This 154-nucleotide RNA sequence from Clostridium chauvoei belongs to the Rfam family "SAM riboswitch aptamer (S box leader)". The organism belongs to Clostridium chauvoei, within Bacteria. From the family's description: The SAM riboswitch is found upstream of a number of genes which code for proteins involved in methionine or cysteine biosynthesis in Gram-positive bacteria.
[Rfam]
RNA sequence: UUCUUAUAAAGAGUGGUGGAGGGACUGGCCCUAUGAAGCCCAGCAACCUACUUUUAAAAUAGGUAGAUAAACUUUCUAAAAGUGUUUAUUUGUGUACUUGUUUUUAAGAGUGUGGUGCUAAUUCCUGCAGCUAGGUUUAGCUGAAAUAUGAGAG
Numbered sequence: 001u002u003c004u005u006a007u008a009a010a011g012a013g014u015g016g017u018g019g020a021g022g023g024a025c026u027g028g029c030c031c032u033a034u035g036a037a038g039c040c041c042a043g044c045a046a047c048c049u050a051c052u053u054u055u056a057a058a059a060u061a062g063g064u065a066g067a068u069a070a071a072c073u074u075u076c077u078a079a080a081a082g083u084g085u086u087u088a089u090u091u092g093u094g095u096a097c098u099u100g101u102u103u104u105u106a107a108g109a110g111u112g113u114g115g116u117g118c119u120a121a122u123u124c125c126u127g128c129a130g131c132u133a134g135g136u137u138u139a140g141c142u143g144a145a146a147u148a149u150g151a152g153a154g
Base pairs, nucleotide, nucleotide: 001154002153003152004151005150006149007148008147013041015040016039017038021031022030023029025127027125028124042119043118044117045116047115048114049112050111051110052109053108054107055106056105057104058103059102123146128143129142130141131140132139133138